MIR168 microRNA precursor family: a 147-nucleotide RNA sequence from Eucalyptus grandis. Rfam links the family to the GO terms RISC complex and miRNA-mediated post-transcriptional gene silencing. For this family Rfam cites "MicroRNAs in plants" (Reinhart et al., Genes Dev, 2002). The organism belongs to Eucalyptus, within Eukaryota. It scores 97 bits against the family's covariance model.

Nucleotides: 147
Base pairs, nucleotide, nucleotide: 013134014133017130018129019128020127023124024123025122026121027120028119029118030117031116032115034113035112036111037110038109040106
Number, partner (000 for none) and nucleotide at each position: 001000u002000u003000a004000c005000c006000g007000g008000c009000g010000g011000u012000c013134u014133c015000u016000a017130a018129u019128u020127c021000g022000c023124u024123u025122g026121g027120u028119g029118c030117a031116g032115g033000u034113c035112g036111g037110g038109a039000a040106c041000c042000g043000g044000u045000u046000c047000g048000c049000c050000g051000g052000g053000a054000g055000g056000g057000c058000g059000g060000c061000a062000g063000g064000a065000a066000c067000c068000u069000c070000u071000c072000c073000g074000c075000c076000g077000g078000c079000g080000u081000c082000c083000g084000c085000g086000c087000c088000g089000a090000u091000c092000g093000a094000g095000g096000g097000g098000g099000c100000g101000g102000a103000u104000u105000c106040g107000a108000u109038u110037c111036c112035c113034g114000c115032c116031u117030u118029g119028c120027a121026u122025c123024a124023a125000c126000u127020g128019a129018a130017u131000c132000g133014g134013a135000g136000a137000c138000c139000g140000c141000g142000g143000u144000g145000a146000a147000g